[Rfam]
RNA: BsrC
Organism: Lottiidibacillus patelloidae
RNA sequence: UGUAACUAAAACAAUGAAAGCCCUACCUCUCUUUCAUCCUUACGGUUCCUAGACCGUGCCAGUGUGAAUUAGAUGUAAAUUAAUCCA
Dot-bracket structure: .................................(((..(((((((((....)))))))..))..)))....................